[Rfam]
RNA sequence: AAGAUUCUUCAGGGCAGGGUGAAAUUCCCGACCGGCGGUGAUAGUCCGCGAGUGCGUUAUGUACGCAUUGAUUUGGUGAAAUUCCAAAACCGACAGUACAGUCUGGAUGGGAGAAGAAUGGC
Number, nucleotide and partner (000 for none) at each position: 001a000002a000003g000004a119005u118006u117007c116008u115009u114010c113011a000012g000013g000014g000015c000016a000017g029018g028019g027020u000021g000022a000023a000024a000025u000026u000027c019028c018029c017030g000031a102032c101033c092034g091035g049036c048037g047038g046039u000040g000041a000042u000043a000044g090045u089046c038047c037048g036049c035050g000051a000052g068053u067054g066055c000056g000057u000058u000059a000060u000061g000062u000063a000064c000065g000066c054067a053068u052069u000070g000071a000072u088073u087074u086075g085076g084077u000078g000079a000080a000081a000082u000083u000084c076085c075086a074087a073088a072089a045090c044091c034092g033093a000094c105095a104096g103097u000098a000099c000100a000101g032102u031103c096104u095105g094106g000107a000108u000109g000110g000111g000112a000113g010114a009115a008116g007117a006118a005119u004120g000121g000122c000
RNA: FMN riboswitch aptamer (RFN element)
Organism: Defluviitalea raffinosedens